[Rfam]
RNA sequence: AUGAACCUUCGGGGCAGGGUGAAAUUCCCGACCGGCGGUAAAGAAAGCAGUCUGCUCGGAUGAACUGUUUUCAAAGCCCGCGACUCGUUCCAAGGUAAACUUUUGGAGCGACUGACUUGGUGAGAUUCCAAGGCCGACGGUAUAGUCCGGAUGGGAGAAGGUCUAA
Numbered sequence: 001a002u003g004a005a006c007c008u009u010c011g012g013g014g015c016a017g018g019g020u021g022a023a024a025u026u027c028c029c030g031a032c033c034g035g036c037g038g039u040a041a042a043g044a045a046a047g048c049a050g051u052c053u054g055c056u057c058g059g060a061u062g063a064a065c066u067g068u069u070u071u072c073a074a075a076g077c078c079c080g081c082g083a084c085u086c087g088u089u090c091c092a093a094g095g096u097a098a099a100c101u102u103u104u105g106g107a108g109c110g111a112c113u114g115a116c117u118u119g120g121u122g123a124g125a126u127u128c129c130a131a132g133g134c135c136g137a138c139g140g141u142a143u144a145g146u147c148c149g150g151a152u153g154g155g156a157g158a159a160g161g162u163c164u165a166a
Stems, first nucleotide, its partner, number of pairs: 003164001005162006017029003031146002033136002035081004076134002085111005116132005138149003
RNA: FMN riboswitch aptamer (RFN element)
Organism: Paenalicyclobacillus ferrooxydans